[Rfam]
RNA sequence: GAUUUGCUGUGAUGACUACAACAAGGACGGUAUCUGAGCGAGGCUCUUGUUGUCCACGCAUGAUUAUACCUAAACUGAGACAAAUGUCUGAGCAAAUC
Numbered sequence: 001g002a003u004u005u006g007c008u009g010u011g012a013u014g015a016c017u018a019c020a021a022c023a024a025g026g027a028c029g030g031u032a033u034c035u036g037a038g039c040g041a042g043g044c045u046c047u048u049g050u051u052g053u054c055c056a057c058g059c060a061u062g063a064u065u066a067u068a069c070c071u072a073a074a075c076u077g078a079g080a081c082a083a084a085u086g087u088c089u090g091a092g093c094a095a096a097u098c
Stems, first nucleotide, its partner, number of pairs: 001098007038059003042055002
Annotation:
A member of the RNA family "Small nucleolar RNA Z118/Z121/Z120" from Eragrostis curvula, 98 nucleotides long. It scores 85 bits against the family's covariance model. The literature on the family includes a 2003 paper in Nucleic Acids Res by Chen et al., "The high diversity of snoRNAs in plants: identification and comparative study of 120 snoRNA genes from Oryza sativa".